[Rfam]
Rfam assigns this 111-nucleotide sequence from Cohnella terricola to the family "Guanidine-I riboswitch aptamer".
Pairs were carried over by alignment from the consensus structure.
RNA sequence: GAUUAGGGUCCCUAGGGUUCCACGGUUGCAGGAUGGCGCCGGUUCGGUCCAAGAGGGAGCUCAUCUUCUCGCGUGAGAAGAUGGACACGGAGGGAUAAAAGCCCGGGAGUA
Numbered sequence: 001g002a003u004u005a006g007g008g009u010c011c012c013u014a015g016g017g018u019u020c021c022a023c024g025g026u027u028g029c030a031g032g033a034u035g036g037c038g039c040c041g042g043u044u045c046g047g048u049c050c051a052a053g054a055g056g057g058a059g060c061u062c063a064u065c066u067u068c069u070c071g072c073g074u075g076a077g078a079a080g081a082u083g084g085a086c087a088c089g090g091a092g093g094g095a096u097a098a099a100a101g102c103c104c105g106g107g108a109g110u111a
Stems, first nucleotide, its partner, number of pairs: 007060001009058004015050002020047002022044001023041004028037002061084008086106001088109001092104003